[Rfam]
RNA: TPP riboswitch aptamer (THI element)
Organism: Aurantimonas aggregata
RNA sequence: UGAGCUCACACGGGGUGCCUUCGGGCUGAGAGGCGUUCAGCCAACCCGUCGAACCUGAUCCGGAUUAUGCCGGCGGAGGGAUUGCGGGCGUCGGCGGAU
Numbered sequence: 001u002g003a004g005c006u007c008a009c010a011c012g013g014g015g016u017g018c019c020u021u022c023g024g025g026c027u028g029a030g031a032g033g034c035g036u037u038c039a040g041c042c043a044a045c046c047c048g049u050c051g052a053a054c055c056u057g058a059u060c061c062g063g064a065u066u067a068u069g070c071c072g073g074c075g076g077a078g079g080g081a082u083u084g085c086g087g088g089c090g091u092c093g094g095c096g097g098a099u
Stems, first nucleotide, its partner, number of pairs: 006087002009084002011048004017026003033041001036040001054079003060073004